Shown here is a 100-nucleotide RNA from Helianthus annuus, a member of the family "Small nucleolar RNA R30/Z108".
Gene Ontology terms of the family: nucleolus and RNA processing.
Clan: SNORD100 clan.
About the family: snoR30 is a C/D box small nucleolar RNA which acts as a methylation guide for 18S ribosomal RNA in plants.
The source organism's lineage runs through Eukaryota, Tracheophyta, asterids, Asteroideae and Helianthus.

[Rfam]
RNA sequence: GGGAAUUGCAAUGAGGAUACAAAGCUCCCUCUUCUGAGUUAGACUGAAGAAACUCUGCUGGCAGAAUCGAACCAAUUUUAAAAUCAUGCCAUCUGAGCAA
Numbered sequence: 001g002g003g004a005a006u007u008g009c010a011a012u013g014a015g016g017a018u019a020c021a022a023a024g025c026u027c028c029c030u031c032u033u034c035u036g037a038g039u040u041a042g043a044c045u046g047a048a049g050a051a052a053c054u055c056u057g058c059u060g061g062c063a064g065a066a067u068c069g070a071a072c073c074a075a076u077u078u079u080a081a082a083a084u085c086a087u088g089c090c091a092u093c094u095g096a097g098c099a100a
Stems, first nucleotide, its partner, number of pairs: 006100004

Notes
Pairs were carried over by alignment from the consensus structure, which was predicted with PFOLD.